Shown here is a 135-nucleotide RNA sequence from Lachnoclostridium sp. An76, a member of the family "FMN riboswitch aptamer (RFN element)". The match comes from Rfam's covariance-model search (94 bits).
RNA sequence: UAAGAUCUUCGGGGUCGGGUGCAAGUCCCAACCGGCGGUAUAGUCCGCGACCCGCACGAUGUGCGGCUGAACCGGUGACUCUCACAUGAGGGGAUUCCGGUACCGACAGUAUAGUCUGGAUGAGAGAAGAGAACA
Numbered sequence: 001u002a003a004g005a006u007c008u009u010c011g012g013g014g015u016c017g018g019g020u021g022c023a024a025g026u027c028c029c030a031a032c033c034g035g036c037g038g039u040a041u042a043g044u045c046c047g048c049g050a051c052c053c054g055c056a057c058g059a060u061g062u063g064c065g066g067c068u069g070a071a072c073c074g075g076u077g078a079c080u081c082u083c084a085c086a087u088g089a090g091g092g093g094a095u096u097c098c099g100g101u102a103c104c105g106a107c108a109g110u111a112u113a114g115u116c117u118g119g120a121u122g123a124g125a126g127a128a129g130a131g132a133a134c135a
Stems, first nucleotide, its partner, number of pairs: 006130005017029003031115002033105002035048004043103002052066002071101005107118003
Dot-bracket structure: .....(((((......(((.......))).[[((((((....[[))))...((...........))....(((((.....................)))))]])).(((....]]))).......))))).....

From the family's description: The RFN element is a highly conserved domain that is found frequently in the 5'-untranslated regions of prokaryotic mRNAs that encode for flavin mononucleotide (FMN) biosynthesis and transport proteins.